[Rfam]
RNA sequence: AGUAAUAAAUCGAUUCUACCUAAGACGCAGGUGUCGUAAGACUUAAUAACCCGCCGAGGAAGUGAAAAACGCGUAAGCGACUUUUGACCCCGGUGCAGUAUGUGCUGGGGGUUUUUGGUACGAAU
Numbered sequence: 001a002g003u004a005a006u007a008a009a010u011c012g013a014u015u016c017u018a019c020c021u022a023a024g025a026c027g028c029a030g031g032u033g034u035c036g037u038a039a040g041a042c043u044u045a046a047u048a049a050c051c052c053g054c055c056g057a058g059g060a061a062g063u064g065a066a067a068a069a070c071g072c073g074u075a076a077g078c079g080a081c082u083u084u085u086g087a088c089c090c091c092g093g094u095g096c097a098g099u100a101u102g103u104g105c106u107g108g109g110g111g112u113u114u115u116u117g118g119u120a121c122g123a124a125u
Base pairs, nucleotide, nucleotide: 027054028053030051031050032049033042034041035040088110089109090108091107092106093105094104095103096102